Notes:
The family of this 281-nucleotide RNA sequence from Variimorphobacter saccharofermentans is "T-box leader". On this family, see Grundy et al., J Bacteriol 1994: "Interaction between the acceptor end of tRNA and the T box stimulates antitermination in the Bacillus subtilis tyrS gene: a new role for the discriminator base". Taxonomically the source falls in Variimorphobacter (Bacteria, Bacillati, Bacillota, Clostridia). It is annotated as a cis-regulatory leader.
RNA sequence: CAAUAGGCGAUGAGGAAGAGGAGUAUAUAAUUUCUGAUGCAUAGAGAGGGAAUGGCUGGUGUAAAUUCCUGUGAGGAGAUUAUAGAAGCAGUUUCUGAGCUACGGACCGAACAUCAUGAAUCGAAUGAUAAGUAGACUUCGUCGGGUUCUGACCGUUAUAUCAGAUUCGGUAUGAAAAAGAAAUGCACGAUGUGUGUAUUUUAUAGUACCGAGUGAGAGCAGAAGAGGAAAAGCCCUUCUGAAUUUAGGUGGUAACACGGAUGGAUACAUUCGCCCUAAGC
Numbered sequence: 001c002a003a004u005a006g007g008c009g010a011u012g013a014g015g016a017a018g019a020g021g022a023g024u025a026u027a028u029a030a031u032u033u034c035u036g037a038u039g040c041a042u043a044g045a046g047a048g049g050g051a052a053u054g055g056c057u058g059g060u061g062u063a064a065a066u067u068c069c070u071g072u073g074a075g076g077a078g079a080u081u082a083u084a085g086a087a088g089c090a091g092u093u094u095c096u097g098a099g100c101u102a103c104g105g106a107c108c109g110a111a112c113a114u115c116a117u118g119a120a121u122c123g124a125a126u127g128a129u130a131a132g133u134a135g136a137c138u139u140c141g142u143c144g145g146g147u148u149c150u151g152a153c154c155g156u157u158a159u160a161u162c163a164g165a166u167u168c169g170g171u172a173u174g175a176a177a178a179a180g181a182a183a184u185g186c187a188c189g190a191u192g193u194g195u196g197u198a199u200u201u202u203a204u205a206g207u208a209c210c211g212a213g214u215g216a217g218a219g220c221a222g223a224a225g226a227g228g229a230a231a232a233g234c235c236c237u238u239c240u241g242a243a244u245u246u247a248g249g250u251g252g253u254a255a256c257a258c259g260g261a262u263g264g265a266u267a268c269a270u271u272c273g274c275c276c277u278a279a280g281c
Stems, first nucleotide, its partner, number of pairs: 007100002015095004026084006048070006103141004108135001143155003220241006246278004258273006